Overview
A member of the RNA family "Small nucleolar RNA SNORA42/SNORA80 family" from Castor canadensis, 133 nucleotides long. Rfam classes the family as an H/ACA-box small nucleolar RNA. It scores 110 bits against the family's covariance model. The base pairs follow the family's consensus structure, which was predicted with RNAalifold. Taxonomically the source falls in Castor (Eukaryota, Amniota, Glires, Castorimorpha). From the family's description: The members of this family belong to the H/ACA class of snoRNAs that guide the sites of modification of uridines to pseudouridines.

[Rfam]
RNA sequence: GUAUGGGUUUGGAUUUAUGGCAGAACCAUCCUCCUGGCCUCUCAUAGCAUCCCAGGCCAGAGCAAACUGUGGCUCUGAACCACUGUCUGGCCUCUGCCUGGAGGCUAGUGGCACUGAAAUGGGUUGCACAGUG
Number, nucleotide and partner (000 for none) at each position: 001g057002u056003a000004u054005g052006g051007g050008u049009u000010u000011g000012g000013a000014u000015u047016u046017a045018u044019g043020g042021c000022a040023g039024a000025a000026c036027c000028a000029u000030c000031c000032u000033c000034c000035u000036g026037g000038c000039c023040u022041c000042u020043c019044a018045u017046a016047g015048c000049a008050u007051c006052c005053c000054a004055g000056g002057c001058c000059a000060g000061a000062g000063c000064a000065a000066a000067c000068u000069g000070u126071g125072g124073c123074u122075c121076u000077g000078a000079a000080c000081c116082a115083c000084u000085g000086u111087c110088u107089g106090g105091c104092c103093u102094c000095u000096g000097c000098c000099u000100g000101g000102a093103g092104g091105c090106u089107a088108g000109u000110g087111g086112c000113a000114c000115u082116g081117a000118a000119a000120u000121g075122g074123g073124u072125u071126g070127c000128a000129c000130a000131g000132u000133g000